[Rfam]
RNA sequence: AGGAGCGUGGGGAGGAAACCGUUACCAUUACUGUGCUUAGUAAUGGUAACGGUUCUCUUGCUGCACUCGGU
Numbered sequence: 001a002g003g004a005g006c007g008u009g010g011g012g013a014g015g016a017a018a019c020c021g022u023u024a025c026c027a028u029u030a031c032u033g034u035g036c037u038u039a040g041u042a043a044u045g046g047u048a049a050c051g052g053u054u055c056u057c058u059u060g061c062u063g064c065a066c067u068c069g070g071u
Base pairs, nucleotide, nucleotide: 007064008063009062012059013058017054018053019052020051022049023048024047025046026045027044028043029042030041031040032039033038
The record is a 71-nucleotide RNA from Vombatus ursinus, which matches "mir-451 microRNA precursor family" in Rfam. For this family Rfam cites "miR-451 regulates zebrafish erythroid maturation in vivo via its target gata2" (Pase et al., Blood, 2009). Pairs were carried over by alignment from the consensus structure, which was predicted with RNAalifold. The match comes from Rfam's covariance-model search (74 bits).